[Rfam]
RNA: Lysine riboswitch aptamer
Organism: Romboutsia weinsteinii
Nucleotides: 172
Base pairs, nucleotide, nucleotide: 007166008165009164010163011162017078018077019076020075021074022073023072024071025070033063034062035061036060037059038058039057082113083112084111085110086109087108088107089106090105091104092103114140115139117137118136119135120134121133122132123131124130142157143156144155145154146153147152
Number, partner (000 for none) and nucleotide at each position: 001000a002000c003000u004000a005000u006000u007166g008165a009164u010163a011162g012000a013000g014000g015000u016000c017078g018077c019076a020075u021074u022073g023072u024071u025070a026000a027000a028000g029000a030000g031000u032000a033063g034062u035061u036060u037059u038058g039057u040000g041000g042000a043000g044000g045000u046000a047000g048000c049000a050000c051000g052000a053000u054000g055000a056000a057039g058038c059037a060036a061035a062034a063033u064000a065000a066000a067000a068000g069000g070025u071024a072023a073022c074021g075020a076019u077018g078017c079000c080000g081000a082113a083112a084111u085110a086109u087108a088107u089106a090105a091104g092103u093000a094000a095000u096000g097000c098000u099000u100000a101000a102000c103092a104091c105090u106089u107088a108087u109086a110085u111084g112083u113082u114140g115139g116000g117137g118136u119135u120134a121133u122132g123131u124130a125000g126000a127000a128000u129000a130124u131123g132122c133121a134120u135119a136118a137117c138000a139115c140114u141000g142157u143156c144155a145154c146153a147152a148000u149000a150000a151000u152147u153146u154145g155144u156143g157142a158000a159000g160000a161000g162011c163010u164009a165008u166007c167000u168000u169000u170000a171000g172000a